The record is an 84-nucleotide RNA from Dioscorea zingiberensis, which matches "mir-393 microRNA precursor family" in Rfam.
The literature on the family includes a 2012 paper in J Plant Physiol by Kruszka et al., "Role of microRNAs and other sRNAs of plants in their changing environments".
Rfam links the family to the GO terms RISC complex and miRNA-mediated post-transcriptional gene silencing.
RNA sequence: UGAGGAAGCAUCCAAAGGGAUCGCAUUGAUCCUGGUUCUGUGGAUAAUGGACUGGGAUCAUGCGAUCCUUUUGAAUUUCUCCUC
Numbered sequence: 001u002g003a004g005g006a007a008g009c010a011u012c013c014a015a016a017g018g019g020a021u022c023g024c025a026u027u028g029a030u031c032c033u034g035g036u037u038c039u040g041u042g043g044a045u046a047a048u049g050g051a052c053u054g055g056g057a058u059c060a061u062g063c064g065a066u067c068c069u070u071u072u073g074a075a076u077u078u079c080u081c082c083u084c
Base pairs, nucleotide, nucleotide: 002084003083004082005081006080008078010076011075013073014072015071016070017069018068019067020066021065023063024062025061026060028059029058030057031056032055033054034053035052036051037050038049